[Rfam]
tRNA: an 84-nucleotide RNA from Thermococcus sibiricus. The source organism's lineage runs through Archaea, Methanobacteriota, Thermococcales, Thermococcus and Thermococcus sibiricus.
Nucleotides: 084
Stems, first nucleotide, its partner, number of pairs: 001083007010026003028044005060076005
Number, partner (000 for none) and nucleotide at each position: 001083g002082c003081c004080g005079g006078g007077a008000u009000a010026g011025c012024c013000u014000a015000g016000c017000c018000u019000g020000g021000g022000a023000u024012g025011g026010c027000g028044c029043g030042g031041g032040c033000c034000u035000u036000g037000a038000g039000a040032g041031c042030c043029c044028g045000u046000g047000g048000g049000c050000g051000u052000u053000u054000g055000c056000c057000c058000g059000c060076c061075g062074g063073g064072g065000u066000u067000c068000a069000a070000a071000u072064c073063c074062c075061c076060g077007u078006c079005c080004c081003g082002g083001c084000g